[Rfam]
RNA sequence: UAGUUUUGUCCUAAGUCAAACUUCUCUUAGAGUUUAUAGAAAAACAUAUUAACAUCUAUAAUACCAAAUAAACACACUAUCAAGACAUUUUAUGGUGGAUUUAAUGAAACUAAUUUGAUGUUGUAGAUGUUGGUGUAUUUUUCUAUAAACUUGGUCAAAGUUAGAGAAGUUUGAUUUAGGACAAAACUAA
Numbered sequence: 001u002a003g004u005u006u007u008g009u010c011c012u013a014a015g016u017c018a019a020a021c022u023u024c025u026c027u028u029a030g031a032g033u034u035u036a037u038a039g040a041a042a043a044a045c046a047u048a049u050u051a052a053c054a055u056c057u058a059u060a061a062u063a064c065c066a067a068a069u070a071a072a073c074a075c076a077c078u079a080u081c082a083a084g085a086c087a088u089u090u091u092a093u094g095g096u097g098g099a100u101u102u103a104a105u106g107a108a109a110c111u112a113a114u115u116u117g118a119u120g121u122u123g124u125a126g127a128u129g130u131u132g133g134u135g136u137a138u139u140u141u142u143c144u145a146u147a148a149a150c151u152u153g154g155u156c157a158a159a160g161u162u163a164g165a166g167a168a169g170u171u172u173g174a175u176u177u178a179g180g181a182c183a184a185a186a187c188u189a190a
Stems, first nucleotide, its partner, number of pairs: 005185005011179016033158002037145008047135003051131010065117005

A member of the RNA family "MIR1435 microRNA precursor family" from Oryza meyeriana, 190 nucleotides long. The family's consensus secondary structure was predicted with RNAalifold.